[Rfam]
Shown here is a 60-nucleotide sequence from Tupaia belangeri, a member of the family "Ma3 gene ribosomal frameshift signal".
The family's RNA type in Rfam is frameshift element.
On this family, see Wills et al., J Biol Chem 2006: "A functional -1 ribosomal frameshift signal in the human paraneoplastic Ma3 gene".
The source organism's lineage runs through Eukaryota, Chordata, Vertebrata, Tupaia and Tupaia belangeri.
Gene Ontology term of the family: translational frameshifting.
RNA sequence: UGGAAAUAAGACAGGGGCUGGGGCCAUGAGCCAGCCCGAGCCCUGGGAAGCAUAGGAUCA
Numbered sequence: 001u002g003g004a005a006a007u008a009a010g011a012c013a014g015g016g017g018c019u020g021g022g023g024c025c026a027u028g029a030g031c032c033a034g035c036c037c038g039a040g041c042c043c044u045g046g047g048a049a050g051c052a053u054a055g056g057a058u059c060a
Base pairs, nucleotide, nucleotide: 014044015043016042017041018040019039021037022036023035024034028059029058031056032055

A search with the family's covariance model found it, with a score of 62 bits.